The record is a 110-nucleotide sequence from Neorhizobium sp. SOG26, which matches "Alphaproteobacterial ar15" in Rfam. Clan: suhB sRNA clan. The match comes from Rfam's covariance-model search (82 bits). Lineage of the source: Bacteria > Pseudomonadota > Hyphomicrobiales > Rhizobiaceae > Neorhizobium.
RNA sequence: AGCAGAUGCACAUCAGCGGUUUCCUCCCAGUGCCGCUAUCUGCUGUUCCCCUCUGGAGGUUCUUUAACCUUCACACUUUAUGGGCUCCGGGCAACCGUGAGCCCUUUUUU
Dot-bracket structure: (((((.(........((((.............)))).).))))).........(((((((......)))))))........(((((.(((....)))..)))))......